[Rfam]
RNA: MIR2907 microRNA precursor family
RNA sequence: CAGCACCCCUGUCUCCGCCCACUCGGCCGCCACGUGGUGGCUGAGCGAGGGCCUCGGGGUGACAC
Dot-bracket structure: ..(...((((......((((.((((((..((....))..))))))...))))...))))...)..
Numbered sequence: 001c002a003g004c005a006c007c008c009c010u011g012u013c014u015c016c017g018c019c020c021a022c023u024c025g026g027c028c029g030c031c032a033c034g035u036g037g038u039g040g041c042u043g044a045g046c047g048a049g050g051g052c053c054u055c056g057g058g059g060u061g062a063c064a065c
Stems, first nucleotide, its partner, number of pairs: 003063001007059004017052004022045006030037002